TPP riboswitch aptamer (THI element): a 134-nucleotide RNA from Ancylobacter tetraedralis. Lineage of the source: Bacteria > Alphaproteobacteria > Hyphomicrobiales > Xanthobacteraceae > Ancylobacter.
[Rfam]
RNA sequence: UGCAUUCACCAGGGGGGUCCCGACACGGGGCUGAGAUACUGCCAGGUGCGCUCCCUCGGGGGGCGUCGCGGCGCAGUGACCCGUUGAACCUGAUCCAGUUCAUACUGGCGUAGGGACGGUGCGGGUGCGUCGUG
Numbered sequence: 001u002g003c004a005u006u007c008a009c010c011a012g013g014g015g016g017g018u019c020c021c022g023a024c025a026c027g028g029g030g031c032u033g034a035g036a037u038a039c040u041g042c043c044a045g046g047u048g049c050g051c052u053c054c055c056u057c058g059g060g061g062g063g064c065g066u067c068g069c070g071g072c073g074c075a076g077u078g079a080c081c082c083g084u085u086g087a088a089c090c091u092g093a094u095c096c097a098g099u100u101c102a103u104a105c106u107g108g109c110g111u112a113g114g115g116a117c118g119g120u121g122c123g124g125g126u127g128c129g130u131c132g133u134g
Base pairs, nucleotide, nucleotide: 007121008120009119010118012082013081014080017031018030019029020028021027038077039076040075041074042073089114090113091112092111095108096107097106098105